[Rfam]
RNA: DUF805b RNA
Organism: Mucilaginibacter gilvus
RNA sequence: ACAGAGAAAGCCGAAAAUCUGAUCCAAGAGUAAGCA
Numbered sequence: 001a002c003a004g005a006g007a008a009a010g011c012c013g014a015a016a017a018u019c020u021g022a023u024c025c026a027a028g029a030g031u032a033a034g035c036a
Stems, first nucleotide, its partner, number of pairs: 002021004010035002